[Rfam]
RNA sequence: ACGCAGGUAAAUAAGAAAGUUCGUAUAUUCCUGAGGAUAUGGCUUAGGAGUUUCUACCAGGUCGCCGUUAACGACCAGACUACGAACAAAAUGUCGACGGGA
Numbered sequence: 001a002c003g004c005a006g007g008u009a010a011a012u013a014a015g016a017a018a019g020u021u022c023g024u025a026u027a028u029u030c031c032u033g034a035g036g037a038u039a040u041g042g043c044u045u046a047g048g049a050g051u052u053u054c055u056a057c058c059a060g061g062u063c064g065c066c067g068u069u070a071a072c073g074a075c076c077a078g079a080c081u082a083c084g085a086a087c088a089a090a091a092u093g094u095c096g097a098c099g100g101g102a
Base pairs, nucleotide, nucleotide: 019087020086021085022084023083024082025081029049030048031047032046033045034044035043058078060076061075062074063073064072
Dot-bracket structure: ..................(((((((...(((((((.......)))))))........(.(((((.......))))).)..)))))))...............
A member of the RNA family "Purine riboswitch aptamer" from Brevibacillus panacihumi, 102 nucleotides long. The family's consensus secondary structure is taken from published work. It scores 82 bits against the family's covariance model. The organism belongs to Brevibacillus panacihumi, within Bacteria.